[Rfam]
RNA sequence: UUGAGGAGGAAGGCAAAUGCGGAGCAUUUUUAGGAUGCCUUCCGACGACAUGCCGCCGAACAUAGGUGAGGGGGCGUUACCCUGA
Numbered sequence: 001u002u003g004a005g006g007a008g009g010a011a012g013g014c015a016a017a018u019g020c021g022g023a024g025c026a027u028u029u030u031u032a033g034g035a036u037g038c039c040u041u042c043c044g045a046c047g048a049c050a051u052g053c054c055g056c057c058g059a060a061c062a063u064a065g066g067u068g069a070g071g072g073g074g075c076g077u078u079a080c081c082c083u084g085a
Stems, first nucleotide, its partner, number of pairs: 008043006016028004052075003056071002060067002
RNA: GA-cis RNA